[Rfam]
RNA sequence: GCGCCGCUCGGCCUGACACAACAUUCUGCAGAAAUGUUGUCGUCUGACCCGCAGUGUCGGCCGAGCAACGC
Numbered sequence: 001g002c003g004c005c006g007c008u009c010g011g012c013c014u015g016a017c018a019c020a021a022c023a024u025u026c027u028g029c030a031g032a033a034a035u036g037u038u039g040u041c042g043u044c045u046g047a048c049c050c051g052c053a054g055u056g057u058c059g060g061c062c063g064a065g066c067a068a069c070g071c
Base pairs, nucleotide, nucleotide: 001071002070003069006066007065009063010062011061012060013059020038021037022036023035024034025033046058047057048056
Dot-bracket structure: (((..((.(((((......((((((.......)))))).......(((.......)))))))).))..)))